[Rfam]
RNA sequence: CUAUCCUUUAAGUUGGCCCAGAGAGGUCUGCAAGGAUGUUGUCAAGUUGAUUAUGCUUAUUUGGCAUGGCCAUUGAUACAACUCCUUGCUUAUUCGGGCAAGGAGUUUGUUUUU
Numbered sequence: 001c002u003a004u005c006c007u008u009u010a011a012g013u014u015g016g017c018c019c020a021g022a023g024a025g026g027u028c029u030g031c032a033a034g035g036a037u038g039u040u041g042u043c044a045a046g047u048u049g050a051u052u053a054u055g056c057u058u059a060u061u062u063g064g065c066a067u068g069g070c071c072a073u074u075g076a077u078a079c080a081a082c083u084c085c086u087u088g089c090u091u092a093u094u095c096g097g098g099c100a101a102g103g104a105g106u107u108u109g110u111u112u113u114u
Base pairs, nucleotide, nucleotide: 003037004036005035006034007033008032013030015028016027017026018025046074048072049071051069052068053067054066055065056064057063080107081106082105083104084103085102086101087100088099089098090097091096
RNA: PyrR binding site
Organism: Sporomusa malonica